RNA sequence: UGUAGAAAACUUCAUCCAUUUCUACUAUUAAAAACUGGCGUGGCUAACGGAAUAACCAGACAAAUACACAUGGUGUGCCACGUGUGCCUUAUGUUGACGUACAAGGACCAAUUUUUAACAGAAAUGGAUGAAACUUUUAACA
Numbered sequence: 001u002g003u004a005g006a007a008a009a010c011u012u013c014a015u016c017c018a019u020u021u022c023u024a025c026u027a028u029u030a031a032a033a034a035c036u037g038g039c040g041u042g043g044c045u046a047a048c049g050g051a052a053u054a055a056c057c058a059g060a061c062a063a064a065u066a067c068a069c070a071u072g073g074u075g076u077g078c079c080a081c082g083u084g085u086g087c088c089u090u091a092u093g094u095u096g097a098c099g100u101a102c103a104a105g106g107a108c109c110a111a112u113u114u115u116u117a118a119c120a121g122a123a124a125u126g127g128a129u130g131a132a133a134c135u136u137u138u139a140a141c142a
Base pairs, nucleotide, nucleotide: 002141003140005138006137007136008135011132012131013130014129015128016127018125019124020123021122022121023120028118029117030116031115032114033113
The record is a 142-nucleotide sequence from Gossypium barbadense, which matches "MIR7502 microRNA precursor family" in Rfam. The family's consensus secondary structure was predicted with RNAalifold. Taxonomically the source falls in Gossypium (Eukaryota, Euphyllophyta, rosids, malvids). Its family is annotated with RISC complex and miRNA-mediated post-transcriptional gene silencing in the Gene Ontology. It scores 99 bits against the family's covariance model.